RNA sequence: UAGUGCCGGCGCGGUGAGGCCUCGGCCCGGAGCGACCCUGGCGUACUUCCCCAACGCCAGGUGCGUGUCCGGACCGGGACCUCUUCGCGCCGGAACCUCCUC
Numbered sequence: 001u002a003g004u005g006c007c008g009g010c011g012c013g014g015u016g017a018g019g020c021c022u023c024g025g026c027c028c029g030g031a032g033c034g035a036c037c038c039u040g041g042c043g044u045a046c047u048u049c050c051c052c053a054a055c056g057c058c059a060g061g062u063g064c065g066u067g068u069c070c071g072g073a074c075c076g077g078g079a080c081c082u083c084u085u086c087g088c089g090c091c092g093g094a095a096c097c098u099c100c101u102c
Base pairs, nucleotide, nucleotide: 010089011088012087013086014085016083018081019080021078022077023076024075025074027072028071029070030069031068032066033065034064037061038060039059040058041057042056043055044054